RNA sequence: GUGCCCGGCACAUACUUCUUUGCUAUCCCAUAUGUUCUUGCAAAGCUAUGGAAUGUAAAGAAGUAUGUACUGUGUGC
Numbered sequence: 001g002u003g004c005c006c007g008g009c010a011c012a013u014a015c016u017u018c019u020u021u022g023c024u025a026u027c028c029c030a031u032a033u034g035u036u037c038u039u040g041c042a043a044a045g046c047u048a049u050g051g052a053a054u055g056u057a058a059a060g061a062a063g064u065a066u067g068u069a070c071u072g073u074g075u076g077c
Stems, first nucleotide, its partner, number of pairs: 007071002010068014028051005
The family of this 77-nucleotide RNA from Pomacea canaliculata is "mir-1 microRNA precursor family". Its family is annotated with RISC complex and miRNA-mediated post-transcriptional gene silencing in the Gene Ontology. The literature on the family includes a 2001 paper in Science by Lee and Ambros, "An extensive class of small RNAs in Caenorhabditis elegans". NCBI's taxonomy places the organism under Eukaryota, Metazoa, Eumetazoa, Mollusca, Pomacea. This family represents the microRNA (miRNA) mir-1 family. miRNAs are transcribed as ~70nt precursors (modelled here) and subsequently processed by the Dicer enzyme to give a ~22nt product. In this case the mature sequence comes from the 3' arm of the precursor. The extents of the hairpin precursors are not generally known and are estimated based on hairpin prediction. The products are thought to have regulatory roles through complementarity to mRNA. The involvement of Dicer in miRNA processing suggests a relationship with the phenomenon of RNA interference. miRNAs are numbered based on the sequence of the mature RNA. This family also contains the mir-206 from human, which appears to be related to mir-1.